[Rfam]
RNA sequence: AUGUGGAGUAGAAGCUGUCAGUGCCGUUCGGCACGGGUCAUUGCUCCCGGA
Dot-bracket structure: ....((((((....(...[.(((((....))))).)]....))))))....
Overview: A member of the RNA family "Xanthine riboswitch aptamer (NMT1 RNA)" from Roseibium aggregatum, 51 nucleotides long. The literature on the family includes a 2020 paper in RNA by Yu and Breaker, "A bacterial riboswitch class senses xanthine and uric acid to regulate genes associated with purine oxidation". The source organism's lineage runs through Bacteria, Pseudomonadota, Hyphomicrobiales, Roseibium and Roseibium aggregatum. Its family is annotated with purine nucleobase binding in the Gene Ontology.